[Rfam]
RNA sequence: UGCAGGCAAGCGCGGAGCUUGUAGAGGUCGUCGAAAGACGGCAGCCCGUUUUGGGUGGGAUCCUCGAAUCCGGGGCCCUGCACCGUC
Dot-bracket structure: (((((((...(.((((.....(.(((((((((....))))))..(((.....))).......))).).))))).).)))))).....
This 87-nucleotide RNA belongs to the Rfam family "DUF3800-VII RNA". The family's consensus secondary structure is taken from published work. The family's RNA type in Rfam is small RNA.